[Rfam]
RNA sequence: AGGAUGUGCCUUUCAGGCAUCCUCUCCUAAAAACUUUUUAGGGCUAGUCUUUCGGGGCUAGCCCUUUUUUUUGGCCUAA
Numbered sequence: 001a002g003g004a005u006g007u008g009c010c011u012u013u014c015a016g017g018c019a020u021c022c023u024c025u026c027c028u029a030a031a032a033a034c035u036u037u038u039u040a041g042g043g044c045u046a047g048u049c050u051u052u053c054g055g056g057g058c059u060a061g062c063c064c065u066u067u068u069u070u071u072u073g074g075c076c077u078a079a
Base pairs, nucleotide, nucleotide: 008018009017010016011015041064042063043062044061045060046059047058048057049056
Rfam assigns this 79-nucleotide RNA sequence from Parasphingorhabdus halotolerans to the family "Makes More Granules Regulator RNA (mmgR)". The base pairs follow the family's consensus structure. The source organism's lineage runs through Bacteria, Pseudomonadati, Alphaproteobacteria, Sphingorhabdaceae and Parasphingorhabdus. It scores 52 bits against the family's covariance model.